Overview
A member of the RNA family "Fungal signal recognition particle RNA" from Morchella conica, 286 nucleotides long. The literature on the family includes a 2002 paper in Nucleic Acids Res by Regalia et al., "Prediction of signal recognition particle RNA genes". Rfam 15.1 lists 748 matches to the family in 741 species. The base pairs follow the family's consensus structure, which is taken from published work. Clan: SRP clan. NCBI's taxonomy places the organism under Eukaryota, Morchellaceae, Morchella, Morchella sect. Distantes, Morchella conica.

[Rfam]
RNA sequence: UGGCUGUAAUGGCCGUUUUGAAAGAAGAUUUCCACAUCUCAGUCUCGAUUUCCCUUUCCAUUCCAACGGAAAGCGGUGUCCGGUUCGAAUCCUGUGGUCGUCAACUCACCCAUGCGAGUAAUCCAUGGUGCUGAUUGGCGCUAAGGGCGAGAAAUAUCCUUCAGGGAAGCAAUUCUGCAGAGAGUUCUCCCCACAGGGUGGCGGCGCCGGAUCGCACUGCUUUCCGGUAUGGGAAGUCGGGACAGAGCGGAAUACCAACUUUCGCCUAGUAUUUUUUAUUUUAUUU
Numbered sequence: 001u002g003g004c005u006g007u008a009a010u011g012g013c014c015g016u017u018u019u020g021a022a023a024g025a026a027g028a029u030u031u032c033c034a035c036a037u038c039u040c041a042g043u044c045u046c047g048a049u050u051u052c053c054c055u056u057u058c059c060a061u062u063c064c065a066a067c068g069g070a071a072a073g074c075g076g077u078g079u080c081c082g083g084u085u086c087g088a089a090u091c092c093u094g095u096g097g098u099c100g101u102c103a104a105c106u107c108a109c110c111c112a113u114g115c116g117a118g119u120a121a122u123c124c125a126u127g128g129u130g131c132u133g134a135u136u137g138g139c140g141c142u143a144a145g146g147g148c149g150a151g152a153a154a155u156a157u158c159c160u161u162c163a164g165g166g167a168a169g170c171a172a173u174u175c176u177g178c179a180g181a182g183a184g185u186u187c188u189c190c191c192c193a194c195a196g197g198g199u200g201g202c203g204g205c206g207c208c209g210g211a212u213c214g215c216a217c218u219g220c221u222u223u224c225c226g227g228u229a230u231g232g233g234a235a236g237u238c239g240g241g242a243c244a245g246a247g248c249g250g251a252a253u254a255c256c257a258a259c260u261u262u263c264g265c266c267u268a269g270u271a272u273u274u275u276u277u278a279u280u281u282u283a284u285u286u
Stems, first nucleotide, its partner, number of pairs: 001015004019283005025277001027274002030271001035249001037247001039245001042243013067226013080210005085204003089199009099140001101138003106133001107130001110128005116123002141145001149189005157184001159182003166175003